[Rfam]
RNA sequence: AGUUGGUCCGAGGGAUGUGAGUGAUUGUUAAACUGAUUAACAUUGUCUCCUGCUCACAACCACAUUUGACUAGCUGGGAUUUUU
Numbered sequence: 001a002g003u004u005g006g007u008c009c010g011a012g013g014g015a016u017g018u019g020a021g022u023g024a025u026u027g028u029u030a031a032a033c034u035g036a037u038u039a040a041c042a043u044u045g046u047c048u049c050c051u052g053c054u055c056a057c058a059a060c061c062a063c064a065u066u067u068g069a070c071u072a073g074c075u076g077g078g079a080u081u082u083u084u
Base pairs, nucleotide, nucleotide: 001075002074003073004072005071006070007069008068010067011066014063016058017057018056019055020054021053026042027041028040030038031037
This 84-nucleotide sequence from Sorex araneus belongs to the Rfam family "Y RNA". Rfam 15.1 lists 26,986 matches to the family in 650 species. Y RNAs are components of the Ro ribonucleoprotein particle (Ro RNP), in association with Ro60 and La proteins. The Y RNAs and Ro60 and La proteins are well conserved, but the function of the Ro RNP is not known. The base pairs follow the family's consensus structure, which is taken from published work. Taxonomically the source falls in Sorex (Eukaryota, Gnathostomata, Mammalia, Soricidae). It is annotated as a non-coding RNA gene. A reference for the family is Chen et al. (2000), "Ro ribonucleoproteins contribute to the resistance of Deinococcus radiodurans to ultraviolet irradiation", Genes Dev.